RNA sequence: ACUGGGCGUCGUGGCGGAUGCCUGUAGCCAGCUUCUAGGCAGUAGAUUGGUGUGAUGGGGUGAGAGGAGGAGUUCGCGGUAGUUGUUGAGUAUGGCGAUCGGGCGUCCGCGCCAAGCGUUGCGUCGCCAGGGGUCAGCUGCCGGGAGGUGACAAGUCCUGGGCGGACAAUGUGGAGUGCAUGGCACAGGCCCGAAAGGGAGCAGACAGAAGCCCUCGCGCGAUGCAGGGGCCGCAAGUGUUCGCAUGCCACCGCAUCAAAAAUUCAUUGAAACGUGCUUCCCUUCUAUGUUCAGAUCAUUGAGCUG
Numbered sequence: 001a002c003u004g005g006g007c008g009u010c011g012u013g014g015c016g017g018a019u020g021c022c023u024g025u026a027g028c029c030a031g032c033u034u035c036u037a038g039g040c041a042g043u044a045g046a047u048u049g050g051u052g053u054g055a056u057g058g059g060g061u062g063a064g065a066g067g068a069g070g071a072g073u074u075c076g077c078g079g080u081a082g083u084u085g086u087u088g089a090g091u092a093u094g095g096c097g098a099u100c101g102g103g104c105g106u107c108c109g110c111g112c113c114a115a116g117c118g119u120u121g122c123g124u125c126g127c128c129a130g131g132g133g134u135c136a137g138c139u140g141c142c143g144g145g146a147g148g149u150g151a152c153a154a155g156u157c158c159u160g161g162g163c164g165g166a167c168a169a170u171g172u173g174g175a176g177u178g179c180a181u182g183g184c185a186c187a188g189g190c191c192c193g194a195a196a197g198g199g200a201g202c203a204g205a206c207a208g209a210a211g212c213c214c215u216c217g218c219g220c221g222a223u224g225c226a227g228g229g230g231c232c233g234c235a236a237g238u239g240u241u242c243g244c245a246u247g248c249c250a251c252c253g254c255a256u257c258a259a260a261a262a263u264u265c266a267u268u269g270a271a272a273c274g275u276g277c278u279u280c281c282c283u284u285c286u287a288u289g290u291u292c293a294g295a296u297c298a299u300u301g302a303g304c305u306g
Stems, first nucleotide, its partner, number of pairs: 001043003004023007027040003045304001047302006056293004062285003066281005075276004080271001085268001087266005093260001100243007107233001111231003116225009125164004130159005137152001139150004166170001173215002176212002183206001190199003
RNA: Metazoan signal recognition particle RNA